[Rfam]
RNA: Small Cajal body specific RNA 16
RNA sequence: CUGGUCUGGAGAACGGCUCCUGUGUUGUUGAACCUGCCCGGCGGCGGGUGCAGCCCUGUACCAGGCAGCCCGACCCUGACCUACAGCAAAUUCCCAGGAGGACUGUUUCCUGGGCUCUGAAUUUGCAGUAACAGGUGUGAACAUUCUAGCAGCAUUGUGAUGAUCAUGUAUGAUACUGCAAACAGGA
Numbered sequence: 001c002u003g004g005u006c007u008g009g010a011g012a013a014c015g016g017c018u019c020c021u022g023u024g025u026u027g028u029u030g031a032a033c034c035u036g037c038c039c040g041g042c043g044g045c046g047g048g049u050g051c052a053g054c055c056c057u058g059u060a061c062c063a064g065g066c067a068g069c070c071c072g073a074c075c076c077u078g079a080c081c082u083a084c085a086g087c088a089a090a091u092u093c094c095c096a097g098g099a100g101g102a103c104u105g106u107u108u109c110c111u112g113g114g115c116u117c118u119g120a121a122u123u124u125g126c127a128g129u130a131a132c133a134g135g136u137g138u139g140a141a142c143a144u145u146c147u148a149g150c151a152g153c154a155u156u157g158u159g160a161u162g163a164u165c166a167u168g169u170a171u172g173a174u175a176c177u178g179c180a181a182a183c184a185g186g187a
Base pairs, nucleotide, nucleotide: 003081004080005079006078008076009075015070016069017068018067019065020064021063022062024061025060027054028053029052030051032049033048034047093114094113095112097109098108099107100106122182123181124180125179126178127177128176129175130174132172133171138166139165140164142162143161144160145159149156